[Rfam]
Nucleotides: 184
Base pairs, nucleotide, nucleotide: 006179007178008177009176010175011174016083017082018081019080020079022076023075024074032067033066034065036063037062038061087118088117089116090115091113092112093111094110095109096108097107098106119145120144121143122142123141124140125139126138127137128136129135147169148168149167150166151165152164153163
Number, partner (000 for none) and nucleotide at each position: 001000u002000g003000u004000u005000u006179a007178g008177a009176u010175a011174g012000a013000g014000g015000u016083g017082c018081a019080a020079g021000a022076u023075u024074c025000a026000a027000a028000a029000g030000u031000a032067g033066c034065u035000a036063g037062c038061a039000g040000g041000a042000g043000g044000a045000g046000a047000a048000c049000a050000a051000u052000u053000c054000c055000u056000a057000a058000g059000a060000a061038u062037g063036c064000a065034g066033g067032u068000g069000a070000a071000a072000g073000g074024g075023a076022a077000g078000c079020c080019u081018u082017g083016c084000c085000g086000a087118a088117g089116c090115a091113g092112u093111a094110a095109a096108u097107u098106g099000a100000u101000u102000g103000u104000u105000c106098c107097a108096a109095u110094u111093u112092a113091u114000a115090u116089g117088c118087u119145g120144g121143u122142g123141u124140u125139g126138c127137a128136u129135u130000u131000a132000a133000u134000a135129g136128a137127u138126g139125u140124a141123a142122c143121a144120u145119u146000g147169u148168c149167a150166g151165a152164g153163u154000c155000a156000a157000u158000u159000u160000u161000a162000g163153a164152u165151u166150c167149u168148g169147g170000a171000g172000a173000g174011c175010u176009a177008u178007c179006u180000c181000a182000u183000a184000a
About this RNA:
The record is a 184-nucleotide RNA sequence from Ureibacillus massiliensis, which matches "Lysine riboswitch aptamer" in Rfam. Rfam links the family to the GO term lysine biosynthetic process.